RNA sequence: CUCAUAAGUAAUAAAAUGUCCGUUUAGGUCCCUUAACUUUAUUUAAAGUGUCAGUUUGGUCCUUUCUGUUAAUUUAAUUCAAAAAAACGUUAAGUUUAUGGACCAAACUAAUACUAAUUAAAAAAGUUAAGGGACCAAACUAAUACUAAUUAAAUAAGUUAAGGGACCAAAAUUUAACUUCUUUUUUUGCAUUAAAUUAACAUAAGGGAUCAAACCGAUACUUGAAAUAAAGUUAAGGGACCAAAAUAAACCUUUUAUUACUUAUGAGA
Dot-bracket structure: .(((((((..............(((.(((.(((((((((((((..((..............................................................................................................................................................................))..))))))))))))).))).)))..............)))))))..
Numbered sequence: 001c002u003c004a005u006a007a008g009u010a011a012u013a014a015a016a017u018g019u020c021c022g023u024u025u026a027g028g029u030c031c032c033u034u035a036a037c038u039u040u041a042u043u044u045a046a047a048g049u050g051u052c053a054g055u056u057u058g059g060u061c062c063u064u065u066c067u068g069u070u071a072a073u074u075u076a077a078u079u080c081a082a083a084a085a086a087a088c089g090u091u092a093a094g095u096u097u098a099u100g101g102a103c104c105a106a107a108c109u110a111a112u113a114c115u116a117a118u119u120a121a122a123a124a125a126g127u128u129a130a131g132g133g134a135c136c137a138a139a140c141u142a143a144u145a146c147u148a149a150u151u152a153a154a155u156a157a158g159u160u161a162a163g164g165g166a167c168c169a170a171a172a173u174u175u176a177a178c179u180u181c182u183u184u185u186u187u188u189g190c191a192u193u194a195a196a197u198u199a200a201c202a203u204a205a206g207g208g209a210u211c212a213a214a215c216c217g218a219u220a221c222u223u224g225a226a227a228u229a230a231a232g233u234u235a236a237g238g239g240a241c242c243a244a245a246a247u248a249a250a251c252c253u254u255u256u257a258u259u260a261c262u263u264a265u266g267a268g269a
Stems, first nucleotide, its partner, number of pairs: 002267007023246003027242003031238013046223002
This 269-nucleotide sequence from Medicago truncatula belongs to the Rfam family "MIR2655 microRNA precursor family". It scores 268 bits against the family's covariance model. Rfam links the family to the GO terms RISC complex and miRNA-mediated post-transcriptional gene silencing. NCBI's taxonomy places the organism under Eukaryota, Gunneridae, Papilionoideae, Trifolieae, Medicago.